[Rfam]
RNA: permuted transfer-messenger RNA
Organism: Yoonia ponticola
RNA sequence: GGAUAUAAACGAGCGUGUUAUUAGCCGGGCCGGACCGGGGUGCGACUCCCCGCAGCUCCACCAUACAUCCUCUCAUUUGGGGGAUUAUGGGGCUGAAUUAGGAUCGACGGACUGUGAACGGGCGUGUCUUUAUCUCGGUGAGUUACCACCGAUAUCGGUACAAACUGUACAAUUGCAAAUGACAAUCGUGCUCCAAUGGCGAUGGCUGCGUAA
Numbered sequence: 001g002g003a004u005a006u007a008a009a010c011g012a013g014c015g016u017g018u019u020a021u022u023a024g025c026c027g028g029g030c031c032g033g034a035c036c037g038g039g040g041u042g043c044g045a046c047u048c049c050c051c052g053c054a055g056c057u058c059c060a061c062c063a064u065a066c067a068u069c070c071u072c073u074c075a076u077u078u079g080g081g082g083g084a085u086u087a088u089g090g091g092g093c094u095g096a097a098u099u100a101g102g103a104u105c106g107a108c109g110g111a112c113u114g115u116g117a118a119c120g121g122g123c124g125u126g127u128c129u130u131u132a133u134c135u136c137g138g139u140g141a142g143u144u145a146c147c148a149c150c151g152a153u154a155u156c157g158g159u160a161c162a163a164a165c166u167g168u169a170c171a172a173u174u175g176c177a178a179a180u181g182a183c184a185a186u187c188g189u190g191c192u193c194c195a196a197u198g199g200c201g202a203u204g205g206c207u208g209c210g211u212a213a
Base pairs, nucleotide, nucleotide: 001135002134003133004132005131014124015123016122026114027113028112030110031109032108036052037051038050039049040048053095054094055093056092057091058090059089136151137150138149139148